[Rfam]
RNA sequence: CCCUCCGAAGUUUCCCUCAGGAUAGCUGGCGCCCGCGGGACCGAGUCCCAUCCGGUAAAGCGAAUGAUUAGAGGCCUUGGGGUCGAAACGACCUCAACCUAUUCUCAAACUUUAAAUGAGUGGGAUCCGCGGCUUAUUUGAACGUGAAGCCGCGGAUAUGGAUCAGGGUGCCAAGUGGGCCACUUUUGGUAAGCAGAACUGGCGCUGUGGGAUGAACCAAACGCCCGGUUAAGGCGCCCGAACCGACGCUCAUCGGAAACCAUGAAAGGUGUUGGUUGCUUAAGACAGCAGGACGGUGGCCAUGGAAGUCGGAAUCCGCUAAGGAGUGUGUAACAACUCACCUGCCGAAGCAACUAGCCCUGAAAAUGGAUGGCGCUGAAGCGUCGUGCCUAUACCGGGCCGUCGGGGCAGUUGGCCCGGCCGGCAACGGCCGGACUGCGACGCCCCGACGAGUAGGAGGGUCGCUGCGGUGAGCGCAGAAGGGUCUGGGCGCGAGCCCGCCUGGAGCCGCCGCAGGUGCAGAU
Numbered sequence: 001c002c003c004u005c006c007g008a009a010g011u012u013u014c015c016c017u018c019a020g021g022a023u024a025g026c027u028g029g030c031g032c033c034c035g036c037g038g039g040a041c042c043g044a045g046u047c048c049c050a051u052c053c054g055g056u057a058a059a060g061c062g063a064a065u066g067a068u069u070a071g072a073g074g075c076c077u078u079g080g081g082g083u084c085g086a087a088a089c090g091a092c093c094u095c096a097a098c099c100u101a102u103u104c105u106c107a108a109a110c111u112u113u114a115a116a117u118g119a120g121u122g123g124g125a126u127c128c129g130c131g132g133c134u135u136a137u138u139u140g141a142a143c144g145u146g147a148a149g150c151c152g153c154g155g156a157u158a159u160g161g162a163u164c165a166g167g168g169u170g171c172c173a174a175g176u177g178g179g180c181c182a183c184u185u186u187u188g189g190u191a192a193g194c195a196g197a198a199c200u201g202g203c204g205c206u207g208u209g210g211g212a213u214g215a216a217c218c219a220a221a222c223g224c225c226c227g228g229u230u231a232a233g234g235c236g237c238c239c240g241a242a243c244c245g246a247c248g249c250u251c252a253u254c255g256g257a258a259a260c261c262a263u264g265a266a267a268g269g270u271g272u273u274g275g276u277u278g279c280u281u282a283a284g285a286c287a288g289c290a291g292g293a294c295g296g297u298g299g300c301c302a303u304g305g306a307a308g309u310c311g312g313a314a315u316c317c318g319c320u321a322a323g324g325a326g327u328g329u330g331u332a333a334c335a336a337c338u339c340a341c342c343u344g345c346c347g348a349a350g351c352a353a354c355u356a357g358c359c360c361u362g363a364a365a366a367u368g369g370a371u372g373g374c375g376c377u378g379a380a381g382c383g384u385c386g387u388g389c390c391u392a393u394a395c396c397g398g399g400c401c402g403u404c405g406g407g408g409c410a411g412u413u414g415g416c417c418c419g420g421c422c423g424g425c426a427a428c429g430g431c432c433g434g435a436c437u438g439c440g441a442c443g444c445c446c447c448g449a450c451g452a453g454u455a456g457g458a459g460g461g462u463c464g465c466u467g468c469g470g471u472g473a474g475c476g477c478a479g480a481a482g483g484g485u486c487u488g489g490g491c492g493c494g495a496g497c498c499c500g501c502c503u504g505g506a507g508c509c510g511c512c513g514c515a516g517g518u519g520c521a522g523a524u
Stems, first nucleotide, its partner, number of pairs: 001461006011024001013022003027173007046125006053118001058113001059111002065107003070102001072100003077097006084090001127155009179203004184198005208219003223400005229394001233390003242387001244386001247383003267361003271358010288345005294318003300312002319323001324339001328337002401451009463519001465516008474508002482503002489498003
Shown here is a 524-nucleotide part of an RNA from Cloeon dipterum, a member of the family "Eukaryotic large subunit ribosomal RNA". The base pairs follow the family's consensus structure, which is taken from published work. Its family is annotated with structural constituent of ribosome and ribosome in the Gene Ontology. The literature on the family includes a 2001 paper in Science by Yusupov et al., "Crystal structure of the ribosome at 5.5 A resolution".